[Rfam]
RNA: Small nucleolar RNA SNORD102
RNA sequence: AGCUCUAUGAUGAUUGUCUUUUGAUUGCUUGAAGCAAUAUUAAAAACUCAUUUUACAGGACCAGCAGUU
Numbered sequence: 001a002g003c004u005c006u007a008u009g010a011u012g013a014u015u016g017u018c019u020u021u022u023g024a025u026u027g028c029u030u031g032a033a034g035c036a037a038u039a040u041u042a043a044a045a046a047c048u049c050a051u052u053u054u055a056c057a058g059g060a061c062c063a064g065c066a067g068u069u
Stems, first nucleotide, its partner, number of pairs: 001069004
Dot-bracket structure: ((((.............................................................))))